[Rfam]
RNA sequence: CUCUUAUCAAGAGAGGCGGAGGGAAAGGGCCCGAUGAAACCCGGCAACCUGUGUGUUACACAAGGUGCCAAUUCCUGCAGAAUUUAUAUUUCUGCGAGAUAAGAG
Numbered sequence: 001c002u003c004u005u006a007u008c009a010a011g012a013g014a015g016g017c018g019g020a021g022g023g024a025a026a027g028g029g030c031c032c033g034a035u036g037a038a039a040c041c042c043g044g045c046a047a048c049c050u051g052u053g054u055g056u057u058a059c060a061c062a063a064g065g066u067g068c069c070a071a072u073u074c075c076u077g078c079a080g081a082a083u084u085u086a087u088a089u090u091u092c093u094g095c096g097a098g099a100u101a102a103g104a105g
Stems, first nucleotide, its partner, number of pairs: 001105008013042001015041002021032003027076003043069004048065002050062004073097001078094005
Shown here is a 105-nucleotide RNA from Clostridium paridis, a member of the family "SAM riboswitch aptamer (S box leader)". From the family's description: The SAM riboswitch is found upstream of a number of genes which code for proteins involved in methionine or cysteine biosynthesis in Gram-positive bacteria. Pairs were carried over by alignment from the consensus structure, which is taken from published work. Gene Ontology term of the family: regulation of gene expression. The match comes from Rfam's covariance-model search (92 bits).